[Rfam]
RNA sequence: GGGCACCUUCGGGGGCCUUCAACAUAGCGAGACAUCUCUCGCACGGCGGGAAACACCCGCCGAAGCUAAACGGAAGACAGAAA
Numbered sequence: 001g002g003g004c005a006c007c008u009u010c011g012g013g014g015g016c017c018u019u020c021a022a023c024a025u026a027g028c029g030a031g032a033c034a035u036c037u038c039u040c041g042c043a044c045g046g047c048g049g050g051a052a053a054c055a056c057c058c059g060c061c062g063a064a065g066c067u068a069a070a071c072g073g074a075a076g077a078c079a080g081a082a083a
Stems, first nucleotide, its partner, number of pairs: 001018004006014003027060003031056001
The record is an 83-nucleotide RNA sequence from Sulfitobacter sp. JL08, which matches "L2-Alphaproteobacteria ribosomal protein leader" in Rfam. It is annotated as a cis-regulatory leader. For this family Rfam cites "Discovery of 20 novel ribosomal leader candidates in bacteria and archaea" (Eckert and Weinberg, BMC Microbiol, 2020). It scores 58 bits against the family's covariance model.